Annotation: A member of the RNA family "c-di-AMP riboswitch aptamer (ydaO/yuaA leader)" from Neosynechococcus sphagnicola, 138 nucleotides long. Its family is annotated with cyclic-di-AMP binding and regulation of gene expression in the Gene Ontology. Pairs were carried over by alignment from the consensus structure. This family represents a conserved RNA structure found upstream of the ydaO and yuaA genes in Bacillus subtilis and related genes in other bacteria. A search with the family's covariance model found it, with a score of 70 bits.
RNA sequence: AUUGGGUGUGAGGUAAAACCUGGAGCGGAGGAACCAAUGUUUUGGGGCGUAUCUCUUGUCCUUACGAGGAUAUCCAGAGAAGGGCAUCUCUCAGCCCUAGCCCGUCAGCUAACUCCGUCGGCAUUGGGAGGAGACUGA
Numbered sequence: 001a002u003u004g005g006g007u008g009u010g011a012g013g014u015a016a017a018a019c020c021u022g023g024a025g026c027g028g029a030g031g032a033a034c035c036a037a038u039g040u041u042u043u044g045g046g047g048c049g050u051a052u053c054u055c056u057u058g059u060c061c062u063u064a065c066g067a068g069g070a071u072a073u074c075c076a077g078a079g080a081a082g083g084g085c086a087u088c089u090c091u092c093a094g095c096c097c098u099a100g101c102c103c104g105u106c107a108g109c110u111a112a113c114u115c116c117g118u119c120g121g122c123a124u125u126g127g128g129a130g131g132a133g134a135c136u137g138a
Base pairs, nucleotide, nucleotide: 025118026117027116028115029114030113035044036043045103046102047101053079054078055077056076082097083096084095085094